[Rfam]
RNA sequence: AUACCUAAAACAAUGAAAGCCCUACCUCUCUUCCAUCCUUACGGCUCCUUGUCCGUGCCAGUGUGAAUCAGGAUACUAAAAAAAGUGA
Numbered sequence: 001a002u003a004c005c006u007a008a009a010a011c012a013a014u015g016a017a018a019g020c021c022c023u024a025c026c027u028c029u030c031u032u033c034c035a036u037c038c039u040u041a042c043g044g045c046u047c048c049u050u051g052u053c054c055g056u057g058c059c060a061g062u063g064u065g066a067a068u069c070a071g072g073a074u075a076c077u078a079a080a081a082a083a084a085g086u087g088a
Stems, first nucleotide, its partner, number of pairs: 034065002038061002040057005046051001
RNA: BsrC